[Rfam]
This 102-nucleotide sequence from Clostridium botulinum belongs to the Rfam family "Purine riboswitch aptamer". Gene Ontology term of the family: purine nucleobase biosynthetic process. Riboswitches are metabolite binding domains within certain messenger RNAs that serve as precision sensors for their corresponding targets.

RNA sequence: UGAAAUAAGUUAAUAAUCAUCCAUAUAAUCUCAAUAAUAAGGUUUGAGAGUCUCUACGAGAGAACCAUAAAUUCUCUGUCUAUGGAUGGAUCUUAGCUAUGC
Numbered sequence: 001u002g003a004a005a006u007a008a009g010u011u012a013a014u015a016a017u018c019a020u021c022c023a024u025a026u027a028a029u030c031u032c033a034a035u036a037a038u039a040a041g042g043u044u045u046g047a048g049a050g051u052c053u054c055u056a057c058g059a060g061a062g063a064a065c066c067a068u069a070a071a072u073u074c075u076c077u078g079u080c081u082a083u084g085g086a087u088g089g090a091u092c093u094u095a096g097c098u099a100u101g102c
Base pairs, nucleotide, nucleotide: 018088019087020086021085022084023083024082025081029049030048031047032046033045034044059077060076061075062074063073064072